[Rfam]
RNA: Small nucleolar RNA SNORD60
RNA sequence: CGCCAGGGAUGAGCUGCUUCGAUUUUCUGACACCUCGUAUGAGAGCUGCUUUCAGCUCCUGAUUAUGAGCGUGGGCUGAGGCUU
Numbered sequence: 001c002g003c004c005a006g007g008g009a010u011g012a013g014c015u016g017c018u019u020c021g022a023u024u025u026u027c028u029g030a031c032a033c034c035u036c037g038u039a040u041g042a043g044a045g046c047u048g049c050u051u052u053c054a055g056c057u058c059c060u061g062a063u064u065a066u067g068a069g070c071g072u073g074g075g076c077u078g079a080g081g082c083u084u
Stems, first nucleotide, its partner, number of pairs: 002082003045056004